[Rfam]
Annotation
This 72-nucleotide RNA belongs to the Rfam family "DUF3800-IX RNA". The family's consensus secondary structure is taken from published work. Rfam's curators put it in the seed alignment. Rfam describes the family as follows. Actinobacteria, Firmicutes (1 example), Nitrospirae, Proteobacteria, Verrucomicrobia (1 example). By type it is a small RNA.
RNA sequence: GACCCAGCUGCUGAACUGUCACCGUUAUGGUGCGCGUGCCCAAGGAUCCUCGGGAUAGGAGCUGGGUCGAAC
Dot-bracket structure: ((((((((..((....(((((((.....)))).)))..(((..........)))...)).))))))))....
Numbered sequence: 001g002a003c004c005c006a007g008c009u010g011c012u013g014a015a016c017u018g019u020c021a022c023c024g025u026u027a028u029g030g031u032g033c034g035c036g037u038g039c040c041c042a043a044g045g046a047u048c049c050u051c052g053g054g055a056u057a058g059g060a061g062c063u064g065g066g067u068c069g070a071a072c
Stems, first nucleotide, its partner, number of pairs: 001068008011059002017036003020032004039054003